[Rfam]
RNA sequence: GCCUCCACUUGGCAAGUCAGCUGAAAAGCUGAACGCGCAAAGUCAUGGGCCUAACGAAACUCUGUUUCUAUGGUAGCCAGACCGCACAU
Numbered sequence: 001g002c003c004u005c006c007a008c009u010u011g012g013c014a015a016g017u018c019a020g021c022u023g024a025a026a027a028g029c030u031g032a033a034c035g036c037g038c039a040a041a042g043u044c045a046u047g048g049g050c051c052u053a054a055c056g057a058a059a060c061u062c063u064g065u066u067u068c069u070a071u072g073g074u075a076g077c078c079a080g081a082c083c084g085c086a087c088a089u
Stems, first nucleotide, its partner, number of pairs: 012038002017032006042082003046079003049074003056068004
RNA: c-di-GMP-I riboswitch aptamer
Organism: Alkalimonas amylolytica